[Rfam]
RNA: Ruegeria cis2 sRNA
RNA sequence: AAUGAUGCGGCGCAUAGUUGAUAAAGGCAAAGCCACGCGCCUGGUCGAUGCAGUGAAACAGCGGGUUCCAGUCGAACAUCGCCAGCAUGUAGCCGGGCAGCGUGUUGGCCACGAACAUCUUGCCCGAGGCGAUCAUGUUGGCACGCUG
Numbered sequence: 001a002a003u004g005a006u007g008c009g010g011c012g013c014a015u016a017g018u019u020g021a022u023a024a025a026g027g028c029a030a031a032g033c034c035a036c037g038c039g040c041c042u043g044g045u046c047g048a049u050g051c052a053g054u055g056a057a058a059c060a061g062c063g064g065g066u067u068c069c070a071g072u073c074g075a076a077c078a079u080c081g082c083c084a085g086c087a088u089g090u091a092g093c094c095g096g097g098c099a100g101c102g103u104g105u106u107g108g109c110c111a112c113g114a115a116c117a118u119c120u121u122g123c124c125c126g127a128g129g130c131g132a133u134c135a136u137g138u139u140g141g142c143a144c145g146c147u148g
Base pairs, nucleotide, nucleotide: 003025008020009019010018034050035049036047037046059148060147061146062145063144065077066076067075068074081142082141083140084139085138086137087136088135089134093129094128096125097124098122099121100120102118103117105114106113107112